[Rfam]
JUMPstart RNA: a 39-nucleotide RNA from [Pantoea] beijingensis. The family's RNA type in Rfam is cis-regulatory element.

RNA sequence: CAGCGAACGGGUAGCUACUGAGCCCGGGGCGGUAGCGUG
Numbered sequence: 001c002a003g004c005g006a007a008c009g010g011g012u013a014g015c016u017a018c019u020g021a022g023c024c025c026g027g028g029g030c031g032g033u034a035g036c037g038u039g
Base pairs, nucleotide, nucleotide: 008026009025010024011023012022